[Rfam]
Nucleotides: 224
Base pairs, nucleotide, nucleotide: 001067002066003065004064005063006062008060010042013039014038020031021030022029023028043056044055045054046053070210071209072208074206075089076088077087078086079085092204093203094202095201096200097199098198099197100196101195102194107140108139111134112133113132114131115130116129117128118127119220122217123215124214125213142186143185144184145183146182147181148180149179150178154177155176157174158173161171162169163168
Number, partner (000 for none) and nucleotide at each position: 001067g002066u003065c004064a005063a006062c007000a008060a009000c010042u011000c012000a013039c014038c015000g016000c017000u018000a019000a020031g021030u022029u023028c024000u025000a026000u027000c028023g029022a030021a031020c032000u033000a034000u035000a036000g037000c038014g039013g040000g041000a042010g043056c044055u045054u046053g047000u048000a049000a050000a051000a052000a053046c054045a055044g056043g057000c058000u059000c060008u061000a062006g063005u064004u065003g066002a067001c068000c069000a070210g071209a072208c073000u074206a075089a076088g077087u078086u079085c080000u081000a082000c083000g084000a085079g086078a087077a088076c089075u090000a091000c092204g093203u094202u095201a096200u097199u098198u099197a100196g101195c102194u103000c104000a105000u106000g107140a108139c109000a110000c111134c112133c113132u114131a115130a116129g117128a118127u119220g120000c121000g122217u123215g124214c125213c126000a127118g128117u129116u130115u131114u132113a133112g134111g135000c136000u137000c138000u139108g140107u141000c142186g143185u144184a145183c146182a147181g148180u149179u150178u151000u152000a153000a154177a155176c156000a157174g158173g159000u160000g161171u162169a163168g164000a165000g166000a167000g168163u169162u170000a171161a172000g173158c174157c175000a176155g177154u178150g179149a180148g181147c182146u183145g184144u185143a186142c187000c188000u189000a190000a191000c192000a193000a194102g195101g196100c197099u198098a199097g200096a201095u202094a203093a204092c205000a206074u207000u208072g209071u210070c211000g212000a213125g214124g215123c216000u217122a218000a219000c220119u221000u222000u223000a224000c